[Rfam]
RNA sequence: CUUUAGCCCUGAUCGCAGUGAUGUCCUUUGUGGUUUUUCUUUAAAACCAUAAAGACUUAACGGAGAGCAGGACCCAUA
Numbered sequence: 001c002u003u004u005a006g007c008c009c010u011g012a013u014c015g016c017a018g019u020g021a022u023g024u025c026c027u028u029u030g031u032g033g034u035u036u037u038u039c040u041u042u043a044a045a046a047c048c049a050u051a052a053a054g055a056c057u058u059a060a061c062g063g064a065g066a067g068c069a070g071g072a073c074c075c076a077u078a
Base pairs, nucleotide, nucleotide: 009070010069011068013066014065018061019060023056024055025054029051030050031049032048033047034046035045036044
Flavo-1 RNA: a 78-nucleotide sequence from Flavobacterium sp. A45. The organism belongs to Flavobacterium, within Bacteria. The base pairs follow the family's consensus structure, which is taken from published work.